[Rfam]
RNA sequence: AUCGCUUCUUGGCCUUUUGGCUAAGAUCAGGUGUAGUAUCUGUUCUUAUCAGUUCACUAUCUGAUACGUCCUCUCUUCGAGGACAUUGUAUUAAAUGUAUUUUUGGAACAGGGAGAUGGAAUAGGAACUUGCUCCGUCCAUUCCACGCAUCGACUGGUAUUGCAGUACCUCCGGGAACAGUGGAUCAAGG
Numbered sequence: 001a002u003c004g005c006u007u008c009u010u011g012g013c014c015u016u017u018u019g020g021c022u023a024a025g026a027u028c029a030g031g032u033g034u035a036g037u038a039u040c041u042g043u044u045c046u047u048a049u050c051a052g053u054u055c056a057c058u059a060u061c062u063g064a065u066a067c068g069u070c071c072u073c074u075c076u077u078c079g080a081g082g083a084c085a086u087u088g089u090a091u092u093a094a095a096u097g098u099a100u101u102u103u104u105g106g107a108a109c110a111g112g113g114a115g116a117u118g119g120a121a122u123a124g125g126a127a128c129u130u131g132c133u134c135c136g137u138c139c140a141u142u143c144c145a146c147g148c149a150u151c152g153a154c155u156g157g158u159a160u161u162g163c164a165g166u167a168c169c170u171c172c173g174g175g176a177a178c179a180g181u182g183g184a185u186c187a188a189g190g
Stems, first nucleotide, its partner, number of pairs: 007026003011022004047066006068084006112144004118138002124135003148182003152178001154174004
The family of this 190-nucleotide sequence from Cnephaeus nilssonii is "U2 spliceosomal RNA". Gene Ontology terms of the family: U2 snRNP, mRNA branch site recognition and pre-mRNA branch point binding. The family's consensus secondary structure is taken from published work. U2 is a small nuclear RNA (snRNA) component of the spliceosome (involved in pre-mRNA splicing). Complementary binding between U2 snRNA (in an area lying towards the 5' end but 3' to hairpin I) and the branchpoint sequence (BPS) of the intron results the bulging out of an unpaired adenosine, on the BPS, which initiates a nucleophilic attack at the intronic 5' splice site, thus starting the first of two transesterification reactions that mediate splicing.